[Rfam]
This 99-nucleotide sequence from Collimonas fungivorans belongs to the Rfam family "Bacterial small signal recognition particle RNA". By type it is a non-coding RNA gene. Clan: SRP clan.
RNA sequence: GGCGGGCCCCUGCGCAUUGUGGCGUGGUCAACCUGGUCAGGUCGGGAACGAAGCAGCCACAGCCAUUUCCUGCAAGUGCCGCAGACAAGGCUCGCCUCU
Numbered sequence: 001g002g003c004g005g006g007c008c009c010c011u012g013c014g015c016a017u018u019g020u021g022g023c024g025u026g027g028u029c030a031a032c033c034u035g036g037u038c039a040g041g042u043c044g045g046g047a048a049c050g051a052a053g054c055a056g057c058c059a060c061a062g063c064c065a066u067u068u069c070c071u072g073c074a075a076g077u078g079c080c081g082c083a084g085a086c087a088a089g090g091c092u093c094g095c096c097u098c099u
Stems, first nucleotide, its partner, number of pairs: 004093005010084005015076001017075006024066005034059004042051003

Pairs were carried over by alignment from the consensus structure, which is taken from published work. NCBI's taxonomy places the organism under Bacteria, Betaproteobacteria, Burkholderiales, Oxalobacteraceae, Collimonas fungivorans.